The family of this 110-nucleotide RNA sequence from Pongo abelii is "Y RNA".
On this family, see Teunissen et al., Nucleic Acids Res 2000: "Conserved features of Y RNAs: a comparison of experimentally derived secondary structures".
The family's RNA type in Rfam is non-coding RNA gene.
Pairs were carried over by alignment from the consensus structure, which is taken from published work.
Rfam's curators write: Y RNAs are components of the Ro ribonucleoprotein particle (Ro RNP), in association with Ro60 and La proteins. The Y RNAs and Ro60 and La proteins are well conserved, but the function of the Ro RNP is not known. In humans the RNA component can be one of four small RNAs -- hY1, hY3, hY4 and hY5. These small RNAs are predicted to fold into a conserved secondary structure containing three stem structures.
A search with the family's covariance model found it, with a score of 57 bits.
The source organism's lineage runs through Eukaryota, Teleostomi, Sarcopterygii, Eutheria and Pongo.
RNA sequence: GGCUAGUCCAAACGUACUGAGUUUUCUCAGUUGAUUACAGUCAGUUACAGAUCGAACUCUUUGUUCUACCCUUCCCCUGCCUUCUCACUAUUGCACUUGACUAGUCUUUA
Numbered sequence: 001g002g003c004u005a006g007u008c009c010a011a012a013c014g015u016a017c018u019g020a021g022u023u024u025u026c027u028c029a030g031u032u033g034a035u036u037a038c039a040g041u042c043a044g045u046u047a048c049a050g051a052u053c054g055a056a057c058u059c060u061u062u063g064u065u066c067u068a069c070c071c072u073u074c075c076c077c078u079g080c081c082u083u084c085u086c087a088c089u090a091u092u093g094c095a096c097u098u099g100a101c102u103a104g105u106c107u108u109u110a
Base pairs, nucleotide, nucleotide: 001106002105003104004103005102006101007100008099010098011097014094015093016089018087019086020085021084040070043067044066